[Rfam]
RNA: mir-298 microRNA precursor family
Organism: Jaculus jaculus
RNA sequence: UCAGGCCUUUGGCAGAGGCGGGCUGUUCUUCCCUUGGGUUUUGGUGACUGGGAGGAACUAGCCCGUUUCUCUGCUUAGGAAUGG
Numbered sequence: 001u002c003a004g005g006c007c008u009u010u011g012g013c014a015g016a017g018g019c020g021g022g023c024u025g026u027u028c029u030u031c032c033c034u035u036g037g038g039u040u041u042u043g044g045u046g047a048c049u050g051g052g053a054g055g056a057a058c059u060a061g062c063c064c065g066u067u068u069c070u071c072u073g074c075u076u077a078g079g080a081a082u083g084g
Stems, first nucleotide, its partner, number of pairs: 001084003006079003011075008020066001021063003025058005032052002036048001